[Rfam]
RNA sequence: GGAUCGAUGAUGACAUCCUAAUUAGCAUUCCUUGGAAAAGCUGAACAAAAUGAGUGAGAAAUCCCUACUGUCUCCUCUCAUCAAACUGAGGUCC
Dot-bracket structure: (((((....................(((((.(((...........)))...))))).................................)))))
Small nucleolar RNA SNORD116: a 94-nucleotide RNA sequence from Dasypus novemcinctus. Pairs were carried over by alignment from the consensus structure, which was predicted with PFOLD. It is annotated as a C/D-box small nucleolar RNA. Rfam 15.1 lists 3,260 matches to the family in 170 species. Its family is annotated with nucleolus and RNA processing in the Gene Ontology.